[Rfam]
RNA: Xanthine riboswitch aptamer (NMT1 RNA)
RNA sequence: GAAACGGGUAGAAGCAGUCAGCGUCGGCCACGGCGGCGCAGGUCAUUGCCCCUCGC
Numbered sequence: 001g002a003a004a005c006g007g008g009u010a011g012a013a014g015c016a017g018u019c020a021g022c023g024u025c026g027g028c029c030a031c032g033g034c035g036g037c038g039c040a041g042g043u044c045a046u047u048g049c050c051c052c053u054c055g056c
Base pairs, nucleotide, nucleotide: 006051007050008049009048010047015041019042021039022038023037024036025035026034